[Rfam]
RNA sequence: GCAUCGGUUUAGCUCAAUGGUUACAUCUUACUCAGCGGUUUCCAUCCAACGGCCCGCGGGCUGAAGGGUUCAACCAUGGGCGCUGUCCGAUGUUUUU
Dot-bracket structure: .((((((....((((.((((....(((((...................................)))))....)))))))).....)))))).....
The family of this 97-nucleotide sequence from Labrus bergylta is "Vault RNA". The family's RNA type in Rfam is non-coding RNA gene. Pairs were carried over by alignment from the consensus structure, which is taken from published work.